[Rfam]
RNA: Small nucleolar RNA SNORA44
RNA sequence: CAGCAUGUUUCCAGGGCUGUGGCUAGUUGUAGCCAUGGGGUUUCCAGCUGCUUACGAGGGCAACCUGGAGACACUUUGACAGCUCAGGUUAGCAUAAUACCUGCAGCUGCCACUCGUCUUUUCUGCAAUA
Numbered sequence: 001c002a003g004c005a006u007g008u009u010u011c012c013a014g015g016g017c018u019g020u021g022g023c024u025a026g027u028u029g030u031a032g033c034c035a036u037g038g039g040g041u042u043u044c045c046a047g048c049u050g051c052u053u054a055c056g057a058g059g060g061c062a063a064c065c066u067g068g069a070g071a072c073a074c075u076u077u078g079a080c081a082g083c084u085c086a087g088g089u090u091a092g093c094a095u096a097a098u099a100c101c102u103g104c105a106g107c108u109g110c111c112a113c114u115c116g117u118c119u120u121u122u123c124u125g126c127a128a129u130a
Stems, first nucleotide, its partner, number of pairs: 011038002015034007067123005082110002085103004